[Rfam]
RNA sequence: AAAGGGCGAGCCGAAAACCUUAAAAAACAGAGUAGGUA
Numbered sequence: 001a002a003a004g005g006g007c008g009a010g011c012c013g014a015a016a017a018c019c020u021u022a023a024a025a026a027a028c029a030g031a032g033u034a035g036g037u038a
Stems, first nucleotide, its partner, number of pairs: 002021004010037003

Rfam assigns this 38-nucleotide sequence from Aquimarina atlantica to the family "DUF805b RNA". NCBI's taxonomy places the organism under Bacteria, Pseudomonadati, Flavobacteriales, Flavobacteriaceae, Aquimarina. A search with the family's covariance model found it, with a score of 40 bits. Rfam classes the family as a cis-regulatory element. Pairs were carried over by alignment from the consensus structure, which is taken from published work.